Rfam assigns this 87-nucleotide RNA sequence to the family "mir-81 microRNA precursor family". The family has 10 seed sequences and 68 matches in Rfam 15.1. The base pairs follow the family's consensus structure, which was predicted with RNAalifold. The literature on the family includes a 2009 paper in Genome Res by de Wit et al., "Repertoire and evolution of miRNA genes in four divergent nematode species".
RNA sequence: CGUGGACUUGCAAUCGGUUUUCACCCUGAUCUGAGAGCUUUCUGAAUGUCUUCUGAGAUCAUCGUGAAAGCUAAUUGUCAGCUCGCG
Numbered sequence: 001c002g003u004g005g006a007c008u009u010g011c012a013a014u015c016g017g018u019u020u021u022c023a024c025c026c027u028g029a030u031c032u033g034a035g036a037g038c039u040u041u042c043u044g045a046a047u048g049u050c051u052u053c054u055g056a057g058a059u060c061a062u063c064g065u066g067a068a069a070g071c072u073a074a075u076u077g078u079c080a081g082c083u084c085g086c087g
Stems, first nucleotide, its partner, number of pairs: 010078003016072009027061006034054003037049002